A member of the RNA family "U11 spliceosomal RNA" from Phyllostomus discolor, 132 nucleotides long.
The base pairs follow the family's consensus structure, which is taken from published work.
Rfam 15.1 lists 2,595 matches to the family in 1,202 species.
On this family, see Montzka and Steitz, Proc Natl Acad Sci U S A 1988: "Additional low-abundance human small nuclear ribonucleoproteins: U11, U12, etc".
Rfam classes the family as a spliceosomal small nuclear RNA.

RNA sequence: AAAAAGGGCUUCUGUUGUGAGUGGCACACGUAGGGCAGCUUUAUUGCUCUAUGUGCGGAAUCGACAUCAAGAGAUUUCGGAAGCAUAAUUUUUGGUACCUGGCAGCUAGUGAUCGUUGGUCCUGGCACCCUU
Numbered sequence: 001a002a003a004a005a006g007g008g009c010u011u012c013u014g015u016u017g018u019g020a021g022u023g024g025c026a027c028a029c030g031u032a033g034g035g036c037a038g039c040u041u042u043a044u045u046g047c048u049c050u051a052u053g054u055g056c057g058g059a060a061u062c063g064a065c066a067u068c069a070a071g072a073g074a075u076u077u078c079g080g081a082a083g084c085a086u087a088a089u090u091u092u093u094g095g096u097a098c099c100u101g102g103c104a105g106c107u108a109g110u111g112a113u114c115g116u117u118g119g120u121c122c123u124g125g126c127a128c129c130c131u132u
Stems, first nucleotide, its partner, number of pairs: 008084005013026005027055012056079007101129002105126005111121004